About this RNA
The record is an 89-nucleotide RNA sequence from a Betaproteobacteria bacterium, which matches "c-di-GMP-I riboswitch aptamer" in Rfam. A search with the family's covariance model found it, with a score of 74 bits. Lineage of the source: Bacteria > Pseudomonadati > Pseudomonadota > Betaproteobacteria.
RNA sequence: UCGUCGAAAGGGCAAACCCAACCGAAAGGCGGGGGCGCAAAGUUACCGGUCUAAGGGGCUGCAAGCCCUAUGACAGCGGGACUGCCGAG
Dot-bracket structure: ...........((...(((..((....)).)))...))..((((.((((((....((((.....))))...)))..)))))))......
Numbered sequence: 001u002c003g004u005c006g007a008a009a010g011g012g013c014a015a016a017c018c019c020a021a022c023c024g025a026a027a028g029g030c031g032g033g034g035g036c037g038c039a040a041a042g043u044u045a046c047c048g049g050u051c052u053a054a055g056g057g058g059c060u061g062c063a064a065g066c067c068c069u070a071u072g073a074c075a076g077c078g079g080g081a082c083u084g085c086c087g088a089g
Stems, first nucleotide, its partner, number of pairs: 012038002017033003022029002041083004046079003049074003056068004